Shown here is a 126-nucleotide RNA sequence from Nostocales cyanobacterium LEGE 11386, a member of the family "c-di-AMP riboswitch aptamer (ydaO/yuaA leader)". Gene Ontology terms of the family: cyclic-di-AMP binding and regulation of gene expression.
[Rfam]
RNA sequence: UAGUCUAAUUCAAAUUCAUCAACACUGGGUUUGAAGCGGAGGAACCAAGUAUUUGGGGCUAAUCUUCACGAGAGACACUUUCCAGUCUUAGCCCGUCAGCUAACUCCGUCGGCAAUGGAAGGAACC
Numbered sequence: 001u002a003g004u005c006u007a008a009u010u011c012a013a014a015u016u017c018a019u020c021a022a023c024a025c026u027g028g029g030u031u032u033g034a035a036g037c038g039g040a041g042g043a044a045c046c047a048a049g050u051a052u053u054u055g056g057g058g059c060u061a062a063u064c065u066u067c068a069c070g071a072g073a074g075a076c077a078c079u080u081u082c083c084a085g086u087c088u089u090a091g092c093c094c095g096u097c098a099g100c101u102a103a104c105u106c107c108g109u110c111g112g113c114a115a116u117g118g119a120a121g122g123a124a125c126c
Stems, first nucleotide, its partner, number of pairs: 003113003009035010036109006046055002056094003064070001073088004